Shown here is a 73-nucleotide RNA sequence from Crypturellus undulatus, a member of the family "Small nucleolar RNA Z40". It scores 69 bits against the family's covariance model. A reference for the family is Chen et al. (2003), "The high diversity of snoRNAs in plants: identification and comparative study of 120 snoRNA genes from Oryza sativa", Nucleic Acids Res. Rfam 15.1 lists 615 matches to the family in 541 species. The family's consensus secondary structure was predicted with PFOLD.

RNA sequence: UAUUGUGGUGAUGAUUGGCAAAAUGUUCAACUGCUCUGAAGACAGUGAAUGAAACCAGCCUUUCUGAACAAGC
Numbered sequence: 001u002a003u004u005g006u007g008g009u010g011a012u013g014a015u016u017g018g019c020a021a022a023a024u025g026u027u028c029a030a031c032u033g034c035u036c037u038g039a040a041g042a043c044a045g046u047g048a049a050u051g052a053a054a055c056c057a058g059c060c061u062u063u064c065u066g067a068a069c070a071a072g073c
Base pairs, nucleotide, nucleotide: 003071004070005069006068